RNA: Small nucleolar RNA snR60/Z15/Z230/Z193/J17
RNA sequence: CUGGGUCAUAUGAUGAUUAGAAGCAUAGUUCAAAUGAAAUCUAUGUGAUUACAAAACUUCUUUUUAGUCUUUCGCUCCUAUCUGAUGGCUCUU
Numbered sequence: 001c002u003g004g005g006u007c008a009u010a011u012g013a014u015g016a017u018u019a020g021a022a023g024c025a026u027a028g029u030u031c032a033a034a035u036g037a038a039a040u041c042u043a044u045g046u047g048a049u050u051a052c053a054a055a056a057c058u059u060c061u062u063u064u065u066a067g068u069c070u071u072u073c074g075c076u077c078c079u080a081u082c083u084g085a086u087g088g089c090u091c092u093u
Base pairs, nucleotide, nucleotide: 004090005089006088007087008086
Dot-bracket structure: ...(((((.............................................................................)))))...